[Rfam]
transfer-messenger RNA: a 372-nucleotide sequence from Streptomyces chumphonensis. By type it is a non-coding RNA gene. Rfam describes the family as follows. Bacterial tmRNA, also known as 10Sa RNA or SsrA, is named for its dual tRNA and mRNA-like properties. Clan: tRNA clan. The match comes from Rfam's covariance-model search (159 bits).
RNA sequence: GGGGAUGAUCGGUUUCGACAGCGGAUGUCGAGAUAGGGGAAGCGAGCCGAGGAACGCGGCAAUGAUCUCGCUAACCAUGUGCCGCAAAAAAAUAAUCGCCAACUCCAAGCGCGAUUCCUUCGCCCUCGCUGCCUGAUCAGCGACUUGCGAAGUGUCAGCCCGGGUGCGUUCCCGACCCGGUUCCUGGCAUCAGCUAGGGAACUCACCGCGUAGACCCGGUCACGGGGUCUGCCGGGACAUCUCACAGUGACUGAGCCCGUCGGCAGCUUGUCUGUGUGACUGCCGGGGCUGAGAAAAGCACAGCAGACUGCGCUCGGAGAAGCCCUGUCUCCGCACCGUUGGACGCGGGUUCGAUUCCCGCCAUCUCCACUG
Numbered sequence: 001g002g003g004g005a006u007g008a009u010c011g012g013u014u015u016c017g018a019c020a021g022c023g024g025a026u027g028u029c030g031a032g033a034u035a036g037g038g039g040a041a042g043c044g045a046g047c048c049g050a051g052g053a054a055c056g057c058g059g060c061a062a063u064g065a066u067c068u069c070g071c072u073a074a075c076c077a078u079g080u081g082c083c084g085c086a087a088a089a090a091a092a093u094a095a096u097c098g099c100c101a102a103c104u105c106c107a108a109g110c111g112c113g114a115u116u117c118c119u120u121c122g123c124c125c126u127c128g129c130u131g132c133c134u135g136a137u138c139a140g141c142g143a144c145u146u147g148c149g150a151a152g153u154g155u156c157a158g159c160c161c162g163g164g165u166g167c168g169u170u171c172c173c174g175a176c177c178c179g180g181u182u183c184c185u186g187g188c189a190u191c192a193g194c195u196a197g198g199g200a201a202c203u204c205a206c207c208g209c210g211u212a213g214a215c216c217c218g219g220u221c222a223c224g225g226g227g228u229c230u231g232c233c234g235g236g237a238c239a240u241c242u243c244a245c246a247g248u249g250a251c252u253g254a255g256c257c258c259g260u261c262g263g264c265a266g267c268u269u270g271u272c273u274g275u276g277u278g279a280c281u282g283c284c285g286g287g288g289c290u291g292a293g294a295a296a297a298g299c300a301c302a303g304c305a306g307a308c309u310g311c312g313c314u315c316g317g318a319g320a321a322g323c324c325c326u327g328u329c330u331c332c333g334c335a336c337c338g339u340u341g342g343a344c345g346c347g348g349g350u351u352c353g354a355u356u357c358c359c360g361c362c363a364u365c366u367c368c369a370c371u372g
Base pairs, nucleotide, nucleotide: 001368002367003366004365005364006363007362019341020340021339022338023337024336030331031330032329033328034327035326036325037324038323043316044315045314046313047312048070049069050068051067052066056085057084058083059082060081061080129147131145153189154188155187156186157185158184160180161179162178163177164176165175168202169201170200171199172198173197206235207234208233210232211231212230213229214228218252219251220250221249222248223247254290255289256288257287258286261285262284263283266280268278270308271307272306273305345361346360347359348358349357